[Rfam]
RNA sequence: AAAAAAGCAGGGAUGGAUUGCCUUUAAGUGAAUUGAUCUCUCGUAAACUUCAGGGACAUCAAAAAUUGCAUUGUUAUUGGGUGAACCACUUGACUUAUUCAUGAUGGAAUGGUUCAGUAAACGAUGAUACAUCU
Numbered sequence: 001a002a003a004a005a006a007g008c009a010g011g012g013a014u015g016g017a018u019u020g021c022c023u024u025u026a027a028g029u030g031a032a033u034u035g036a037u038c039u040c041u042c043g044u045a046a047a048c049u050u051c052a053g054g055g056a057c058a059u060c061a062a063a064a065a066u067u068g069c070a071u072u073g074u075u076a077u078u079g080g081g082u083g084a085a086c087c088a089c090u091u092g093a094c095u096u097a098u099u100c101a102u103g104a105u106g107g108a109a110u111g112g113u114u115c116a117g118u119a120a121a122c123g124a125u126g127a128u129a130c131a132u133c134u
Base pairs, nucleotide, nucleotide: 005050006049007048011039012038014036016034017033018032019031069126070125071124072123073122074121075120082116083115084114085113086112087111088110